Rfam assigns this 80-nucleotide RNA from Jatropha curcas to the family "Small nucleolar RNA Z102/R77".
NCBI's taxonomy places the organism under Eukaryota, Streptophytina, Pentapetalae, Euphorbiaceae, Jatropha.
The literature on the family includes a 2003 paper in Nucleic Acids Res by Chen et al., "The high diversity of snoRNAs in plants: identification and comparative study of 120 snoRNA genes from Oryza sativa".
The family's consensus secondary structure was predicted with PFOLD.
Its Rfam clan is "SNORD44 clan".
Its family is annotated with nucleolus and RNA processing in the Gene Ontology.
A search with the family's covariance model found it, with a score of 80 bits.
[Rfam]
RNA sequence: GAAUGAGGUGAUGAUUUGAUAUGUUUCCCUAUUGGUUUGAUUGCCAAUAUGAUGGCAGUAUUAGCUCUAUCUGAUCAUUC
Dot-bracket structure: .((((....................................((((........))))..................)))).